[Rfam]
RNA sequence: GGUCAGUGAUGACAUGUAAAAGGUCCGAAGCCUUCGUCUCCUUCCAGUCCUUCUGUCCCUCCCAGCAGCCUCGGUUCAUUUUUCUCCAGCCUGCUCUAGUCGUGCAUCGCUGGAUCGGUGUGGCGGCUGAUAUUAUGGGUGUCUGCUGUAUAUCUAAAGUCUUCUAGAGAACAAGACAACUUGAUAACUGCAGUGUCAAACAGUAACAUAACACACAGGAGGGCUGGACUGAAGGAGGACGUCUGGCAGGCUCAUGAUCUCAAGUUUUCAAGCUGAGACC
Numbered sequence: 001g002g003u004c005a006g007u008g009a010u011g012a013c014a015u016g017u018a019a020a021a022g023g024u025c026c027g028a029a030g031c032c033u034u035c036g037u038c039u040c041c042u043u044c045c046a047g048u049c050c051u052u053c054u055g056u057c058c059c060u061c062c063c064a065g066c067a068g069c070c071u072c073g074g075u076u077c078a079u080u081u082u083u084c085u086c087c088a089g090c091c092u093g094c095u096c097u098a099g100u101c102g103u104g105c106a107u108c109g110c111u112g113g114a115u116c117g118g119u120g121u122g123g124c125g126g127c128u129g130a131u132a133u134u135a136u137g138g139g140u141g142u143c144u145g146c147u148g149u150a151u152a153u154c155u156a157a158a159g160u161c162u163u164c165u166a167g168a169g170a171a172c173a174a175g176a177c178a179a180c181u182u183g184a185u186a187a188c189u190g191c192a193g194u195g196u197c198a199a200a201c202a203g204u205a206a207c208a209u210a211a212c213a214c215a216c217a218g219g220a221g222g223g224c225u226g227g228a229c230u231g232a233a234g235g236a237g238g239a240c241g242u243c244u245g246g247c248a249g250g251c252u253c254a255u256g257a258u259c260u261c262a263a264g265u266u267u268u269c270a271a272g273c274u275g276a277g278a279c280c
Stems, first nucleotide, its partner, number of pairs: 001280004036258003041235003045231004059221004063129004068124002085114006094104001139197001143193002154183001156181001159177005

A member of the RNA family "Small Cajal body specific RNA 6" from Cyprinus carpio, 280 nucleotides long. Rfam classes the family as a small Cajal body RNA. The base pairs follow the family's consensus structure, which is taken from published work. U88 is small Cajal body specific RNA (scaRNA). scaRNAs are a novel class of small nuclear RNAs which localise to the Cajal bodies. The organism belongs to Cyprinus, within Eukaryota.